[Rfam]
A member of the RNA family "S-element" from Paramesorhizobium endophyticum, 68 nucleotides long.
RNA sequence: UGUCAAGAGUCUUUAGCGUCUUUUGGGCGAGCGGAUUUCUUUUGCCUUCGAAAAGGUGAAGGAAAAUG
Numbered sequence: 001u002g003u004c005a006a007g008a009g010u011c012u013u014u015a016g017c018g019u020c021u022u023u024u025g026g027g028c029g030a031g032c033g034g035a036u037u038u039c040u041u042u043u044g045c046c047u048u049c050g051a052a053a054a055g056g057u058g059a060a061g062g063a064a065a066a067u068g
Stems, first nucleotide, its partner, number of pairs: 010063005017058004022054003027049001029047001031045005
Annotation:
This family represents a group of S-elements from p42d and related plasmids. The S-element has multiple functions and is believed to act as a negative regulator of repC transcription, be required for efficient replication and act as a translational enhancer of repC. The match comes from Rfam's covariance-model search (78 bits). The source organism's lineage runs through Bacteria, Pseudomonadati, Alphaproteobacteria, Hyphomicrobiales and Paramesorhizobium. Rfam 15.1 lists 231 matches to the family in 124 species. It is annotated as a cis-regulatory element. Gene Ontology terms of the family: translation regulator activity and mRNA transcription.